Rfam assigns this 84-nucleotide RNA from Ureibacillus yapensis to the family "pan motif". Lineage of the source: Bacteria > Bacillati > Bacilli > Caryophanales > Ureibacillus. By type it is a cis-regulatory element. The match comes from Rfam's covariance-model search (62 bits).
RNA sequence: UGGACAGUAUCAUUACUGAACUGUACCUUUCUACAAUGCUACUAAAAAAGAUCUGCCUUGAUCGUAUAUGACAGGGACGGAAGA
Numbered sequence: 001u002g003g004a005c006a007g008u009a010u011c012a013u014u015a016c017u018g019a020a021c022u023g024u025a026c027c028u029u030u031c032u033a034c035a036a037u038g039c040u041a042c043u044a045a046a047a048a049a050g051a052u053c054u055g056c057c058u059u060g061a062u063c064g065u066a067u068a069u070g071a072c073a074g075g076g077a078c079g080g081a082a083g084a
Base pairs, nucleotide, nucleotide: 002027003026004024005023006022007021008020010019011018053080054079055078056076057075058074059073060072062071063070064069